[Rfam]
RNA sequence: UAUGAAAGUCCCAGACGGCAGCCAAGAAUGAGCCAUGCUUUGCAUGAGCGAAUUCUUGGAUAUCGGAUGGGCUAGACCGUAUGAGUAAGUAGGGCGAUAGCCCGGAUUACGAAUGCGGUCGGCAGCUGUGGGAGCGCCUAUAGGCGCGGAACAGCUGACUUUCAUA
Numbered sequence: 001u002a003u004g005a006a007a008g009u010c011c012c013a014g015a016c017g018g019c020a021g022c023c024a025a026g027a028a029u030g031a032g033c034c035a036u037g038c039u040u041u042g043c044a045u046g047a048g049c050g051a052a053u054u055c056u057u058g059g060a061u062a063u064c065g066g067a068u069g070g071g072c073u074a075g076a077c078c079g080u081a082u083g084a085g086u087a088a089g090u091a092g093g094g095c096g097a098u099a100g101c102c103c104g105g106a107u108u109a110c111g112a113a114u115g116c117g118g119u120c121g122g123c124a125g126c127u128g129u130g131g132g133a134g135c136g137c138c139u140a141u142a143g144g145c146g147c148g149g150a151a152c153a154g155c156u157g158a159c160u161u162u163c164a165u166a
Stems, first nucleotide, its partner, number of pairs: 001166007010071004017064002020061001022059008032049001034046004075120008085110004092103004123157007134147004
This 166-nucleotide RNA sequence belongs to the Rfam family "Clostridiales-1 RNA". By type it is a small RNA.